A member of the RNA family "FMN riboswitch aptamer (RFN element)" from Olsenella sp. oral taxon 809, 144 nucleotides long. From the family's description: The RFN element is a highly conserved domain that is found frequently in the 5'-untranslated regions of prokaryotic mRNAs that encode for flavin mononucleotide (FMN) biosynthesis and transport proteins. A search with the family's covariance model found it, with a score of 98 bits. NCBI's taxonomy places the organism under Bacteria, Coriobacteriia, Coriobacteriales, Atopobiaceae, Olsenella sp. oral taxon 809. Rfam links the family to the GO term FMN binding.
[Rfam]
RNA sequence: AGACAGUUUCGGGGCGGGGUGAGAUUCCCCACUGGCGGUGAUGGGCGCGAAGUUCGCCCGAGUCCGCGCGCCGCACAGAAAAGAGCGGCUGACCUGGUGAGAUCCCAGGACCAACGGUCAAAGUCCGGAUGAGAGAAACGAGGC
Numbered sequence: 001a002g003a004c005a006g007u008u009u010c011g012g013g014g015c016g017g018g019g020u021g022a023g024a025u026u027c028c029c030c031a032c033u034g035g036c037g038g039u040g041a042u043g044g045g046c047g048c049g050a051a052g053u054u055c056g057c058c059c060g061a062g063u064c065c066g067c068g069c070g071c072c073g074c075a076c077a078g079a080a081a082a083g084a085g086c087g088g089c090u091g092a093c094c095u096g097g098u099g100a101g102a103u104c105c106c107a108g109g110a111c112c113a114a115c116g117g118u119c120a121a122a123g124u125c126c127g128g129a130u131g132a133g134a135g136a137a138a139c140g141a142g143g144c
Stems, first nucleotide, its partner, number of pairs: 006139005017029003031124002033113002035067004062111002070089003093109005115127003